[Rfam]
RNA sequence: GCACUUCUGCAAACCCUGUCCUUCUGUGUCAGUGCUGGGCACGGGUUUAAAAGUGCUAAAGUACCUCAGAGUGCAUCCAGACAAGUCUCCUCUUCUAUUGGCGCUUGUCUCUACAAACUUUGAAACAAGC
Numbered sequence: 001g002c003a004c005u006u007c008u009g010c011a012a013a014c015c016c017u018g019u020c021c022u023u024c025u026g027u028g029u030c031a032g033u034g035c036u037g038g039g040c041a042c043g044g045g046u047u048u049a050a051a052a053g054u055g056c057u058a059a060a061g062u063a064c065c066u067c068a069g070a071g072u073g074c075a076u077c078c079a080g081a082c083a084a085g086u087c088u089c090c091u092c093u094u095c096u097a098u099u100g101g102c103g104c105u106u107g108u109c110u111c112u113a114c115a116a117a118c119u120u121u122g123a124a125a126c127a128a129g130c
Stems, first nucleotide, its partner, number of pairs: 001056005012046001014044002017041002020038002066123006079110008089101002

The family of this 130-nucleotide sequence from Danio rerio is "Small nucleolar RNA SNORA55". A search with the family's covariance model found it, with a score of 57 bits. About the family: ACA55 is a member of the H/ACA class of snoRNA that guide the sites of modification of uridines to pseudouridines. The family's consensus secondary structure was predicted with PFOLD.